[Rfam]
RNA sequence: GGUGAUAAAUGAUGUCGCGAAAUAGAUGCAGCGGACCCGGGGGCGGUACCCGGCGGCUCCACCACGAAGCCCGGUUUUCGGACUUCAUGACGGGGCCGAACUAGGAUCGACGUGUAUUCAAAGGCGAUGUUUUUGCCCGGCCUGAAUGAGCCGUAAAACCGUUCAAACUCACAAGUGCUAACGAUAACGAAGCACUCGCGAUCGCCGCGUAA
Numbered sequence: 001g002g003u004g005a006u007a008a009a010u011g012a013u014g015u016c017g018c019g020a021a022a023u024a025g026a027u028g029c030a031g032c033g034g035a036c037c038c039g040g041g042g043g044c045g046g047u048a049c050c051c052g053g054c055g056g057c058u059c060c061a062c063c064a065c066g067a068a069g070c071c072c073g074g075u076u077u078u079c080g081g082a083c084u085u086c087a088u089g090a091c092g093g094g095g096c097c098g099a100a101c102u103a104g105g106a107u108c109g110a111c112g113u114g115u116a117u118u119c120a121a122a123g124g125c126g127a128u129g130u131u132u133u134u135g136c137c138c139g140g141c142c143u144g145a146a147u148g149a150g151c152c153g154u155a156a157a158a159c160c161g162u163u164c165a166a167a168c169u170c171a172c173a174a175g176u177g178c179u180a181a182c183g184a185u186a187a188c189g190a191a192g193c194a195c196u197c198g199c200g201a202u203c204g205c206c207g208c209g210u211a212a
Stems, first nucleotide, its partner, number of pairs: 001137005015127004027116003031113003037053005054098007138153004
Dot-bracket structure: (((((.........((((........(((.(((...(((((.......)))))(((((((...............................)))))))............)))))).......)))).....)))))((((........))))...........................................................
A member of the RNA family "permuted transfer-messenger RNA" from Sphingomonas sp. Root720, 212 nucleotides long.
Pairs were carried over by alignment from the consensus structure, which is taken from published work.
About the family: Bacterial tmRNA, also known as 10Sa RNA or SsrA, is named for its dual tRNA and mRNA-like properties. Its role is to liberate the mRNA from a stalled ribosome.
For this family Rfam cites "Phylogenetic analysis of tmRNA secondary structure" (Williams and Bartel, RNA, 1996).
The source organism's lineage runs through Bacteria, Pseudomonadota, Alphaproteobacteria, Sphingomonadales and Sphingomonas.